[Rfam]
RNA sequence: AACGUAUCUGGGCCUGGUAACUCCACCACCGUUGGCGUGACCUCGCCAACGGGGGCAGAGUUCCCUCUCCUAGACGCGAU
Numbered sequence: 001a002a003c004g005u006a007u008c009u010g011g012g013c014c015u016g017g018u019a020a021c022u023c024c025a026c027c028a029c030c031g032u033u034g035g036c037g038u039g040a041c042c043u044c045g046c047c048a049a050c051g052g053g054g055g056c057a058g059a060g061u062u063c064c065c066u067c068u069c070c071u072a073g074a075c076g077c078g079a080u
Base pairs, nucleotide, nucleotide: 003078004077005076007074008073009072010071011070012069016065017064019062020061021060022059023058026055027054029052030051031050032049033048034047035046036045037044